[Rfam]
RNA sequence: AUAUUGCAGGAUCAAAGUGAAUAUUGGUAUUCCAAAAUAUAUCAUGAAUACCAAUAUUCACUUUGAUCCUGCAAAAU
Numbered sequence: 001a002u003a004u005u006g007c008a009g010g011a012u013c014a015a016a017g018u019g020a021a022u023a024u025u026g027g028u029a030u031u032c033c034a035a036a037a038u039a040u041a042u043c044a045u046g047a048a049u050a051c052c053a054a055u056a057u058u059c060a061c062u063u064u065g066a067u068c069c070u071g072c073a074a075a076a077u
Stems, first nucleotide, its partner, number of pairs: 001077002005073011018060001020058008
Record summary
mir-16 microRNA precursor family: a 77-nucleotide sequence from Thamnophis sirtalis. Gene Ontology terms of the family: miRNA-mediated post-transcriptional gene silencing and RISC complex.